[Rfam]
This 88-nucleotide sequence from Bacillus sp. V5-8f belongs to the Rfam family "c-di-GMP-I riboswitch aptamer".
RNA sequence: CAAUUGAAUAGGCACACCCAUUGAAAAAUGGGGCCGCAAAACUACAGGGGCUACAACGUGAAACGUGUUAUGCCAGCCAGUUGCCGAA
Numbered sequence: 001c002a003a004u005u006g007a008a009u010a011g012g013c014a015c016a017c018c019c020a021u022u023g024a025a026a027a028a029u030g031g032g033g034c035c036g037c038a039a040a041a042c043u044a045c046a047g048g049g050g051c052u053a054c055a056a057c058g059u060g061a062a063a064c065g066u067g068u069u070a071u072g073c074c075a076g077c078c079a080g081u082u083g084c085c086g087a088a
Stems, first nucleotide, its partner, number of pairs: 012037002017032006040082004047078002049074003056068004